[Rfam]
RNA sequence: UGAUGGCAAUGAUGAUUUUCAUGAUGUUGCUCUCCUGAUGUACAAACAUGAGGUUGCACAGUCACUACCUCUUCUGAAGCCAUCU
Numbered sequence: 001u002g003a004u005g006g007c008a009a010u011g012a013u014g015a016u017u018u019u020c021a022u023g024a025u026g027u028u029g030c031u032c033u034c035c036u037g038a039u040g041u042a043c044a045a046a047c048a049u050g051a052g053g054u055u056g057c058a059c060a061g062u063c064a065c066u067a068c069c070u071c072u073u074c075u076g077a078a079g080c081c082a083u084c085u
Stems, first nucleotide, its partner, number of pairs: 002084006
RNA: Small nucleolar RNA SNORD11B
Organism: Sphenodon punctatus